[Rfam]
RNA sequence: UCACUUACCUGGACGGGGUCAAUGGGCGAUCAAGAAGGCCCAUGGCCUAGGUUGGUGACCUCCAUUGCACUUUAGGAGGGGUGCCCGCCUAUGGUCUCCUCAAUAGUAGGAGAGCCAACGUCAUAAUUUGUGGUAGUGGGGGCUUGCGUUCGCGCAGCCCCCUA
Numbered sequence: 001u002c003a004c005u006u007a008c009c010u011g012g013a014c015g016g017g018g019u020c021a022a023u024g025g026g027c028g029a030u031c032a033a034g035a036a037g038g039c040c041c042a043u044g045g046c047c048u049a050g051g052u053u054g055g056u057g058a059c060c061u062c063c064a065u066u067g068c069a070c071u072u073u074a075g076g077a078g079g080g081g082u083g084c085c086c087g088c089c090u091a092u093g094g095u096c097u098c099c100u101c102a103a104u105a106g107u108a109g110g111a112g113a114g115c116c117a118a119c120g121u122c123a124u125a126a127u128u129u130g131u132g133g134u135a136g137u138g139g140g141g142g143c144u145u146g147c148g149u150u151c152g153c154g155c156a157g158c159c160c161c162c163u164a
Base pairs, nucleotide, nucleotide: 012122013121014120015119016048017047018046019045020044021043023042024041025040026039027038049090050089051088053087055084056083057082059080060079061078062076063075092117093116094115095113096112097111099109100108138163139162140161141160142159145156146155147154148153
RNA: U1 spliceosomal RNA